[Rfam]
RNA sequence: CCGCGUGCGGACCGGGAGCCGGGGACCCACCACUUCUGGGGUGAAUCUCUCGCAAGGCGUGUGGCGUUCUCGGGCGUCGUACGAGGAGCGUGAGUAGGGCAAGUCGUGCCCGAACCCGUCAGCUCACCCGGUAGG
Numbered sequence: 001c002c003g004c005g006u007g008c009g010g011a012c013c014g015g016g017a018g019c020c021g022g023g024g025a026c027c028c029a030c031c032a033c034u035u036c037u038g039g040g041g042u043g044a045a046u047c048u049c050u051c052g053c054a055a056g057g058c059g060u061g062u063g064g065c066g067u068u069c070u071c072g073g074g075c076g077u078c079g080u081a082c083g084a085g086g087a088g089c090g091u092g093a094g095u096a097g098g099g100c101a102a103g104u105c106g107u108g109c110c111c112g113a114a115c116c117c118g119u120c121a122g123c124u125c126a127c128c129c130g131g132u133a134g135g
Base pairs, nucleotide, nucleotide: 001135002134006017008015018132019131020130021129022128023127028038029037039117040116041115047094048093049092097111098110099109100108